Shown here is a 128-nucleotide RNA sequence from Callorhinus ursinus, a member of the family "Small nucleolar RNA SNORA13".
RNA sequence: AGCCUUUGUGUUGUCCCUUCACUUUUGGAAACUAGCAAAUGUGGUGUCAAAAAAGACGGAAUGCUUUGCAGCCUUUUCCUGUCCUUGAAUUGGAUAUUGUUGGUGUAGGAGCUGCAUAAGUAACAGUU
Dot-bracket structure: .(.((((.((.(((((.((..((..........))..)).).)))).))..)))).).....((((((((((....((((((((..((........))...)).)))))))))))).)))).......
Numbered sequence: 001a002g003c004c005u006u007u008g009u010g011u012u013g014u015c016c017c018u019u020c021a022c023u024u025u026u027g028g029a030a031a032c033u034a035g036c037a038a039a040u041g042u043g044g045u046g047u048c049a050a051a052a053a054a055g056a057c058g059g060a061a062u063g064c065u066u067u068g069c070a071g072c073c074u075u076u077u078c079c080u081g082u083c084c085u086u087g088a089a090u091u092g093g094a095u096a097u098u099g100u101u102g103g104u105g106u107a108g109g110a111g112c113u114g115c116a117u118a119a120g121u122a123a124c125a126g127u128u
Stems, first nucleotide, its partner, number of pairs: 002057001004055004009049002012046004016041001018039002022035002063121004067116006077110006083103002087098002

The family's RNA type in Rfam is H/ACA-box small nucleolar RNA.
ACA13 is a member of the H/ACA class of snoRNA that guide the sites of modification of uridines to pseudouridines.
The source organism's lineage runs through Eukaryota, Craniata, Euteleostomi, Sarcopterygii and Callorhinus.